[Rfam]
RNA sequence: GUUCUACUGCGGCGUUGGUGACUGCCAAUAAUGUUUUAUGAUCUACGCCUUAACUUACACGGGUCUCAAGAAUCUUAGUGGCAGUAGACCGGGCUUGUACCCGGAAACUUAAAACUAAGUUCACGAAAUCCAACCUGGAUUUUUUCCAGGUCAAAAACUGAGGUAAGACGGCGUUGCGGGGAACUU
Numbered sequence: 001g002u003u004c005u006a007c008u009g010c011g012g013c014g015u016u017g018g019u020g021a022c023u024g025c026c027a028a029u030a031a032u033g034u035u036u037u038a039u040g041a042u043c044u045a046c047g048c049c050u051u052a053a054c055u056u057a058c059a060c061g062g063g064u065c066u067c068a069a070g071a072a073u074c075u076u077a078g079u080g081g082c083a084g085u086a087g088a089c090c091g092g093g094c095u096u097g098u099a100c101c102c103g104g105a106a107a108c109u110u111a112a113a114a115c116u117a118a119g120u121u122c123a124c125g126a127a128a129u130c131c132a133a134c135c136u137g138g139a140u141u142u143u144u145u146c147c148a149g150g151u152c153a154a155a156a157a158c159u160g161a162g163g164u165a166a167g168a169c170g171g172c173g174u175u176g177c178g179g180g181g182a183a184c185u186u
Stems, first nucleotide, its partner, number of pairs: 003183001005181001007179009018169002035157003039153006061131003066126002070122001072121001074119006084108002089104005
A member of the RNA family "6S / SsrS RNA" from Oculatella sp. LEGE 06141, 186 nucleotides long. About the family: E. coli 6S RNA was the first non coding RNA to be sequenced, but its function was unknown until recently. It consists of 184 nucleotides that fold into an extended hairpin structure with a large single-stranded internal bulge. The 6S RNA specifically associates with RNA polymerase holoenzyme containing the sigma70 specificity factor. This interaction represses expression from a sigma70-dependent promoter during stationary phase. 6S RNA homologs have recently been identified in most bacterial genomes. Taxonomically the source falls in Oculatella (Bacteria, Bacillati, Cyanophyceae, Oculatellales). The match comes from Rfam's covariance-model search (87 bits).